[Rfam]
RNA: Small nucleolar RNA SNORD90
RNA sequence: AAUUCACUUUUUUGUGUCUUAUGAUGAAGCUUCAUAGGGCAGAUUCUGAGCUGAGAAAUGAAUUUUCUCUCCACUGAUACUCUCUAUGCCAUCUGAAGACACUGUGACAUUU
Numbered sequence: 001a002a003u004u005c006a007c008u009u010u011u012u013u014g015u016g017u018c019u020u021a022u023g024a025u026g027a028a029g030c031u032u033c034a035u036a037g038g039g040c041a042g043a044u045u046c047u048g049a050g051c052u053g054a055g056a057a058a059u060g061a062a063u064u065u066u067c068u069c070u071c072c073a074c075u076g077a078u079a080c081u082c083u084c085u086a087u088g089c090c091a092u093c094u095g096a097a098g099a100c101a102c103u104g105u106g107a108c109a110u111u112u
Stems, first nucleotide, its partner, number of pairs: 012104001014102006029092001033088003037083003042078001045077002048074001050072001053069005